[Rfam]
This 57-nucleotide RNA from [Eubacterium] siraeum belongs to the Rfam family "pemK RNA". The family's consensus secondary structure is taken from published work. Taxonomically the source falls in [Eubacterium] siraeum (Bacteria, Clostridia, Eubacteriales, Oscillospiraceae). The sequence is in the family's curated seed alignment.
RNA sequence: AUAAUGAUACUUCUCUACGAGCUGGCGGAGAACCCGGCAGAGGUGAAAUUCCUAUGA
Numbered sequence: 001a002u003a004a005u006g007a008u009a010c011u012u013c014u015c016u017a018c019g020a021g022c023u024g025g026c027g028g029a030g031a032a033c034c035c036g037g038c039a040g041a042g043g044u045g046a047a048a049u050u051c052c053u054a055u056g057a
Base pairs, nucleotide, nucleotide: 012054013021014020022040023039024038026036027035028034041053042052043051